This 84-nucleotide sequence from Charadrius vociferus belongs to the Rfam family "Small nucleolar RNA SNORD121A". It scores 72 bits against the family's covariance model. Rfam links the family to the GO terms RNA processing and nucleolus. For this family Rfam cites "snoSeeker: an advanced computational package for screening of guide and orphan snoRNA genes in the human genome" (Yang et al., Nucleic Acids Res, 2006). Taxonomically the source falls in Charadrius (Eukaryota, Vertebrata, Archosauria, Theropoda).
RNA sequence: GUCCGAAGUACAGUGAUGUUGUCUUUUCCAAGCAUAUAUCUGACUGCUCUGUGUGGAAAGUGACUGUUGCUGAGUAUUUUGGAU
Numbered sequence: 001g002u003c004c005g006a007a008g009u010a011c012a013g014u015g016a017u018g019u020u021g022u023c024u025u026u027u028c029c030a031a032g033c034a035u036a037u038a039u040c041u042g043a044c045u046g047c048u049c050u051g052u053g054u055g056g057a058a059a060g061u062g063a064c065u066g067u068u069g070c071u072g073a074g075u076a077u078u079u080u081g082g083a084u
Stems, first nucleotide, its partner, number of pairs: 001084006008077004